[Rfam]
The family of this 65-nucleotide RNA sequence is "S15-Flavobacteria ribosomal protein leader". The literature on the family includes a 2020 paper in BMC Microbiol by Eckert and Weinberg, "Discovery of 20 novel ribosomal leader candidates in bacteria and archaea". The family's RNA type in Rfam is cis-regulatory leader. The family's consensus secondary structure is taken from published work.
RNA sequence: UAUAUUUGCCGCUCGAAAGAAGCACUUUCGUAUACAUAAAAAUCAUUAAAAAUAAUAUUCGAAUG
Numbered sequence: 001u002a003u004a005u006u007u008g009c010c011g012c013u014c015g016a017a018a019g020a021a022g023c024a025c026u027u028u029c030g031u032a033u034a035c036a037u038a039a040a041a042a043u044c045a046u047u048a049a050a051a052a053u054a055a056u057a058u059u060c061g062a063a064u065g
Base pairs, nucleotide, nucleotide: 014030015029016028017027018026019025